This 87-nucleotide RNA from Manihot esculenta belongs to the Rfam family "Small nucleolar RNA Z122".
RNA sequence: GUUGGGAGAUGAUGAGAAAAUUCAGACACAUCAUCUGAGGCAUCAGCUCUGCUGAGAACCUAUUUUGCACGUCAGUCUGAUCCCAAA
Numbered sequence: 001g002u003u004g005g006g007a008g009a010u011g012a013u014g015a016g017a018a019a020a021u022u023c024a025g026a027c028a029c030a031u032c033a034u035c036u037g038a039g040g041c042a043u044c045a046g047c048u049c050u051g052c053u054g055a056g057a058a059c060c061u062a063u064u065u066u067g068c069a070c071g072u073c074a075g076u077c078u079g080a081u082c083c084c085a086a087a
Stems, first nucleotide, its partner, number of pairs: 002086006

Gene Ontology terms of the family: RNA processing and nucleolus. The literature on the family includes a 2003 paper in Nucleic Acids Res by Chen et al., "The high diversity of snoRNAs in plants: identification and comparative study of 120 snoRNA genes from Oryza sativa". By type it is a C/D-box small nucleolar RNA. Taxonomically the source falls in Manihot (Eukaryota, Spermatophyta, eudicotyledons, fabids). The base pairs follow the family's consensus structure, which was predicted with PFOLD.